Background:
This 488-nucleotide RNA from Desulfonatronum sp. SC1 belongs to the Rfam family "Bacterial RNase P class A". It is annotated as a ribozyme.
RNA sequence: GGAGUCGGGCAGGUUGUCGCCGGGGGCGUGUUUUGCUCAGGCAAGGCGCGUCCCGGGAGGAAAGUCCGGGCUCCAUAGGGCGGGACGCUGGAUAACGUCCAGCGGGGGCGACCCCGGGAAAGUGCCACAGAAAACAGACCGCCCCGCGCUCACUUUGCCUUUGUCAUCUUUUCGGCCUUUGCUGGAUGACCAGGGCAAAGUGAGCGCGGGGUAAGGGUGAAACGGUGGGGUAAGAGCCCACCAGUUGCCGCGGUGACGCGGCAAGCUCGGCAAACCCCGUUCGGAGCAAGACCAAAUAGGAGGACGCUUGAGGCCGGCCCGGUCGAAGUCCUCGGGUAGGUUGCUGGAGGCCGGAAGCAAUUCCGGUCCUAGAGGAAUGACAAUCGCCCCGCGCUCACUUUGUCCUGACGGAUCGUCGGGUCAUGAUGCUUUGCCAGGACAAAGUGGGCGCGGGGAGACAGAACCCGGCUUAUCGCCCGACUCCCGCG
Numbered sequence: 001g002g003a004g005u006c007g008g009g010c011a012g013g014u015u016g017u018c019g020c021c022g023g024g025g026g027c028g029u030g031u032u033u034u035g036c037u038c039a040g041g042c043a044a045g046g047c048g049c050g051u052c053c054c055g056g057g058a059g060g061a062a063a064g065u066c067c068g069g070g071c072u073c074c075a076u077a078g079g080g081c082g083g084g085a086c087g088c089u090g091g092a093u094a095a096c097g098u099c100c101a102g103c104g105g106g107g108g109c110g111a112c113c114c115c116g117g118g119a120a121a122g123u124g125c126c127a128c129a130g131a132a133a134a135c136a137g138a139c140c141g142c143c144c145c146g147c148g149c150u151c152a153c154u155u156u157g158c159c160u161u162u163g164u165c166a167u168c169u170u171u172u173c174g175g176c177c178u179u180u181g182c183u184g185g186a187u188g189a190c191c192a193g194g195g196c197a198a199a200g201u202g203a204g205c206g207c208g209g210g211g212u213a214a215g216g217g218u219g220a221a222a223c224g225g226u227g228g229g230g231u232a233a234g235a236g237c238c239c240a241c242c243a244g245u246u247g248c249c250g251c252g253g254u255g256a257c258g259c260g261g262c263a264a265g266c267u268c269g270g271c272a273a274a275c276c277c278c279g280u281u282c283g284g285a286g287c288a289a290g291a292c293c294a295a296a297u298a299g300g301a302g303g304a305c306g307c308u309u310g311a312g313g314c315c316g317g318c319c320c321g322g323u324c325g326a327a328g329u330c331c332u333c334g335g336g337u338a339g340g341u342u343g344c345u346g347g348a349g350g351c352c353g354g355a356a357g358c359a360a361u362u363c364c365g366g367u368c369c370u371a372g373a374g375g376a377a378u379g380a381c382a383a384u385c386g387c388c389c390c391g392c393g394c395u396c397a398c399u400u401u402g403u404c405c406u407g408a409c410g411g412a413u414c415g416u417c418g419g420g421u422c423a424u425g426a427u428g429c430u431u432u433g434c435c436a437g438g439a440c441a442a443a444g445u446g447g448g449c450g451c452g453g454g455g456a457g458a459c460a461g462a463a464c465c466c467g468g469c470u471u472a473u474c475g476c477c478c479g480a481c482u483c484c485c486g487c488g
Stems, first nucleotide, its partner, number of pairs: 001484010011473001012385007020057002023054013062471003066468005071286004078320004083282005088102005103116005117277002122275002124271003139216002141212021224242006244266001245264008290342004300333006312324004349368008